UnaL2 LINE 3' element: a 54-nucleotide sequence from Salmo salar. The literature on the family includes a 2004 paper in RNA by Baba et al., "Solution structure of an RNA stem-loop derived from the 3' conserved region of eel LINE UnaL2". Rfam classes the family as a cis-regulatory element. From the family's description: The eel long interspersed element (LINE) UnaL2 and its partner short interspersed element (SINE) share a conserved 3' tail containing a stem-loop that is critical for their retrotransposition. NCBI's taxonomy places the organism under Eukaryota, Opisthokonta, Vertebrata, Teleostomi, Salmo.
RNA sequence: UUACAAACUUGCUGUAAGUCGCUUUGGAUAAAAGCGUCUGCUAAAUGACUGAAA
Dot-bracket structure: ............((((...((((((.....))))))..))).)...........